A member of the RNA family "RT-16 RNA", 167 nucleotides long.
RNA sequence: CCUUUUUUCUAAUAAUUUGUCUUAGGGAGGCACUCUCCAAUGAACUAAGGCUACAUGUCUGUUAAUAGUGCUUUUUAAAAAAGCCAUAAAAUUCAAAAGUGACAAAUAGUAAUGAAAAUGAAACUUGAAACUUUGGUGAUUUACUUUAAAUUAAUAGACUACAUGUC
Numbered sequence: 001c002c003u004u005u006u007u008u009c010u011a012a013u014a015a016u017u018u019g020u021c022u023u024a025g026g027g028a029g030g031c032a033c034u035c036u037c038c039a040a041u042g043a044a045c046u047a048a049g050g051c052u053a054c055a056u057g058u059c060u061g062u063u064a065a066u067a068g069u070g071c072u073u074u075u076u077a078a079a080a081a082a083g084c085c086a087u088a089a090a091a092u093u094c095a096a097a098a099g100u101g102a103c104a105a106a107u108a109g110u111a112a113u114g115a116a117a118a119u120g121a122a123a124c125u126u127g128a129a130a131c132u133u134u135g136g137u138g139a140u141u142u143a144c145u146u147u148a149a150a151u152u153a154a155u156a157g158a159c160u161a162c163a164u165g166u167c
Base pairs, nucleotide, nucleotide: 001050002049003048004047007044008043009042010040057159058158059157060156061155062154063153064152065151066150067140069138096134097133098132099131100130103127104126105125107123112119113118

Pairs were carried over by alignment from the consensus structure, which is taken from published work. Rfam's curators put it in the seed alignment. By type it is a small RNA.